[Rfam]
RNA sequence: CAGGAUCUAUGAUUCAACUGUUAAACUGUGUUAUCUUUCCUUGAACCUUUUAAGGUUCUGAAGAAUGCAUUACCUGCUGAGAUCCAUG
Dot-bracket structure: ((((((...........................................................................)))).))

Rfam assigns this 88-nucleotide RNA sequence from Dichanthelium oligosanthes to the family "Small nucleolar RNA snoR27". A reference for the family is Brown et al. (2001), "Multiple snoRNA gene clusters from Arabidopsis", RNA. Clan: snR68 clan. NCBI's taxonomy places the organism under Eukaryota, Mesangiospermae, Poales, Paniceae, Dichanthelium. Rfam classes the family as a C/D-box small nucleolar RNA.